Shown here is an 83-nucleotide sequence from Bradyrhizobium diazoefficiens, a member of the family "ZMP/ZTP riboswitch aptamer (pfl RNA motif)". Pairs were carried over by alignment from the consensus structure, which is taken from published work. Rfam's curators put it in the seed alignment. Its family is annotated with one-carbon metabolic process and regulation of purine nucleotide biosynthetic process in the Gene Ontology.
Nucleotides: 083
Stems, first nucleotide, its partner, number of pairs: 006052007015043002017071004028039004060078001062076003
Number, partner (000 for none) and nucleotide at each position: 001000g002000c003000u004000c005000g006052c007051u008050c009049g010048c011047g012046c013000g014000a015043c016042u017071g018070g019069c020068g021000a022000c023000c024000u025000u026000g027000g028039a029038u030037g031036g032000a033000g034000c035000a036031c037030c038029a039028u040000c041000g042016g043015g044000a045000a046012g047011c048010g049009c050008g051007g052006g053000a054000c055000u056000u057000a058000a059000g060078a061000c062076g063075c064074c065000g066000c067000g068020c069019g070018c071017c072000u073000g074064g075063g076062c077000a078060u079000a080000g081000a082000c083000a